[Rfam]
RNA sequence: ACACCAAAACUGAAAACGGAAGGCAAUCCUUCCACGACGAUACUUACUUUCCUUUGAUCGUCGUUACUACUGGCAUAGCCACAAAGGAGAACAAACAUG
Dot-bracket structure: .................(((((......)))))..((((((.......[[[[[[..))))))........((((...))))..]]]]]]..........